[Rfam]
RNA sequence: GCUUAUUCUCAGGGCAGGGUGCAAUUCCUGACCGGCGGUAUUCCGGAUUUGAGCCGGAGAGCCCGCGAGCGCCUGAUGCAUUUUGCAACAGGGUCAGCAGAUCCGGUGAGAGGCCGGAGCCGACGGUAAUAGUCCGGAUGGUAGAGAAUGGGU
Numbered sequence: 001g002c003u004u005a006u007u008c009u010c011a012g013g014g015c016a017g018g019g020u021g022c023a024a025u026u027c028c029u030g031a032c033c034g035g036c037g038g039u040a041u042u043c044c045g046g047a048u049u050u051g052a053g054c055c056g057g058a059g060a061g062c063c064c065g066c067g068a069g070c071g072c073c074u075g076a077u078g079c080a081u082u083u084u085g086c087a088a089c090a091g092g093g094u095c096a097g098c099a100g101a102u103c104c105g106g107u108g109a110g111a112g113g114c115c116g117g118a119g120c121c122g123a124c125g126g127u128a129a130u131a132g133u134c135c136g137g138a139u140g141g142u143a144g145a146g147a148a149u150g151g152g153u
Base pairs, nucleotide, nucleotide: 003151004150005149006148007147008146009145010144017029018028019027031133032132033122034121035066036065037064038063061120062119069098070097102118103117104116105115106114124136125135126134
RNA: FMN riboswitch aptamer (RFN element)
Organism: Aestuariispira insulae